Rfam assigns this 101-nucleotide RNA from Paenibacillus sp. UNC496MF to the family "Purine riboswitch aptamer". Rfam's curators write: Riboswitches are metabolite binding domains within certain messenger RNAs that serve as precision sensors for their corresponding targets. It scores 71 bits against the family's covariance model.

RNA sequence: ACAAACAAUUGCAUGUCUUUUCGUAUAAUCUCAAGAAUCGGCUUGAGAGUCUCUACGAGGUCACCGUAAAUGGCCUGUCUACGAAAAGCAAGAACGCGCGC
Dot-bracket structure: .................((((((((...(((((((......))))))).........((((((.......))))))...))))))))..............